[Rfam]
RNA sequence: GGCGAGUUGGCGGAGUGGUUACGCAACGGAUUGCAAAUCCGUGUACACCGGUUCGAUUCCGGUACUCGCCU
Numbered sequence: 001g002g003c004g005a006g007u008u009g010g011c012g013g014a015g016u017g018g019u020u021a022c023g024c025a026a027c028g029g030a031u032u033g034c035a036a037a038u039c040c041g042u043g044u045a046c047a048c049c050g051g052u053u054c055g056a057u058u059c060c061g062g063u064a065c066u067c068g069c070c071u
Stems, first nucleotide, its partner, number of pairs: 001070007010024003026042005047063005

Overview:
Rfam assigns this 71-nucleotide RNA from Pelagivirga sediminicola to the family "tRNA". A search with the family's covariance model found it, with a score of 67 bits.